[Rfam]
The record is a 145-nucleotide RNA from Carboxydocella thermautotrophica, which matches "FMN riboswitch aptamer (RFN element)" in Rfam.

Nucleotides: 145
Stems, first nucleotide, its partner, number of pairs: 004142007017029003031125002033114002035063004058112002066080003084110005116128003
Number, partner (000 for none) and nucleotide at each position: 001000a002000a003000a004142c005141u006140c007139c008138u009137u010136c011000g012000g013000g014000g015000a016000u017029a018028g019027g020000u021000g022000a023000a024000a025000u026000u027019c028018c029017u030000u031125a032124c033114c034113g035063g036062c037061g038060g039000u040000a041000g042000g043000c044000a045000g046000c047000a048000u049000a050000a051000g052000c053000u054000g055000c056000g057000a058112g059111c060038c061037c062036g063035c064000g065000a066080g067079c068078c069000g070000g071000c072000u073000c074000a075000g076000u077000c078068g079067g080066c081000a082000g083000a084110u085109c086108c087107g088106g089000u090000g091000c092000g093000c094000c095000a096000g097000a098000a099000g100000g101000c102000a103000a104000g105000u106088c107087c108086g109085g110084a111059g112058c113034c114033g115000a116128c117127a118126g119000u120000g121000a122000c123000a124032g125031u126118c127117u128116g129000g130000a131000u132000g133000g134000g135000a136010g137009a138008a139007g140006g141005a142004g143000g144000g145000c
The organism belongs to Carboxydocella thermautotrophica, within Bacteria. The family has 146 seed sequences and 6,230 matches in Rfam 15.1. From the family's description: The RFN element is a highly conserved domain that is found frequently in the 5'-untranslated regions of prokaryotic mRNAs that encode for flavin mononucleotide (FMN) biosynthesis and transport proteins. Pairs were carried over by alignment from the consensus structure, which is taken from published work.